RNA sequence: CCUCUCAAGGAGCGCUGCAGCGCCGGGAGCCUUCUGGCGCUCCCGUGCGUCAGGCUUGGGUGGGGCGCAAACAGGCCCCGAACGGCGCUCACCAGUC
Numbered sequence: 001c002c003u004c005u006c007a008a009g010g011a012g013c014g015c016u017g018c019a020g021c022g023c024c025g026g027g028a029g030c031c032u033u034c035u036g037g038c039g040c041u042c043c044c045g046u047g048c049g050u051c052a053g054g055c056u057u058g059g060g061u062g063g064g065g066c067g068c069a070a071a072c073a074g075g076c077c078c079c080g081a082a083c084g085g086c087g088c089u090c091a092c093c094a095g096u097c
Stems, first nucleotide, its partner, number of pairs: 002062001004060005021049003026044001
This 97-nucleotide sequence from Simplicispira hankyongi belongs to the Rfam family "SAH (S-adenosyl-L-homocysteine) riboswitch aptamer". Lineage of the source: Bacteria > Pseudomonadati > Burkholderiales > Comamonadaceae > Simplicispira.